Rfam assigns this 232-nucleotide sequence from Cyanomargarita calcarea to the family "HNH endonuclease-associated RNA and ORF (HEARO) RNA".
By type it is a non-coding RNA gene.
For this family Rfam cites "Exceptional structured noncoding RNAs revealed by bacterial metagenome analysis" (Weinberg et al., Nature, 2009).
A search with the family's covariance model found it, with a score of 134 bits.
[Rfam]
RNA sequence: GUCAGCAACCCAGGUCUGAAGACACUGGGCUUCUAGCAAUUGCUUGAAGUUCCCCUUCAGAAAUAGCUGACCAGACUCAGCGCAAGCUACGUUAAAGGCAAGAGUUUAAGACCUACCGGAGGAUGCGUGCUAGUCCUCUGCUCUAGAACUAGGCGAUUAAACAGGCUGAUUCGGGUUAAGCCAGUGUCGUCAAGAUAGUACCGACCUUUAACUUUGUCGAAGCAAACAUUAC
Numbered sequence: 001g002u003c004a005g006c007a008a009c010c011c012a013g014g015u016c017u018g019a020a021g022a023c024a025c026u027g028g029g030c031u032u033c034u035a036g037c038a039a040u041u042g043c044u045u046g047a048a049g050u051u052c053c054c055c056u057u058c059a060g061a062a063a064u065a066g067c068u069g070a071c072c073a074g075a076c077u078c079a080g081c082g083c084a085a086g087c088u089a090c091g092u093u094a095a096a097g098g099c100a101a102g103a104g105u106u107u108a109a110g111a112c113c114u115a116c117c118g119g120a121g122g123a124u125g126c127g128u129g130c131u132a133g134u135c136c137u138c139u140g141c142u143c144u145a146g147a148a149c150u151a152g153g154c155g156a157u158u159a160a161a162c163a164g165g166c167u168g169a170u171u172c173g174g175g176u177u178a179a180g181c182c183a184g185u186g187u188c189g190u191c192a193a194g195a196u197a198g199u200a201c202c203g204a205c206c207u208u209u210a211a212c213u214u215u216g217u218c219g220a221a222g223c224a225a226a227c228a229u230u231a232c
Base pairs, nucleotide, nucleotide: 001071002070003069004068005067006066008064010029011028012026013025015022016021030049031048032047033046074218075217076216079088080087081086091212092211093210094209095208096207097206098205113146114145117140118139119138120137121136122135123134124133128225129223130222131221149194150193152191153190154189155188156187157186161185162184164182165181166180167179169177